RNA sequence: CUUGAUUGAGCCCAGCCACAGGGGCCGCUGGCCGGAACGGCCUUGUCCGUAGGCGGCGAUCAACGCCUGGGCCUC
Numbered sequence: 001c002u003u004g005a006u007u008g009a010g011c012c013c014a015g016c017c018a019c020a021g022g023g024g025c026c027g028c029u030g031g032c033c034g035g036a037a038c039g040g041c042c043u044u045g046u047c048c049g050u051a052g053g054c055g056g057c058g059a060u061c062a063a064c065g066c067c068u069g070g071g072c073c074u075c
Stems, first nucleotide, its partner, number of pairs: 015025003032070002038065002044059001047056003
RNA: ASpks TB sRNA
Organism: Streptomyces sp. AJS327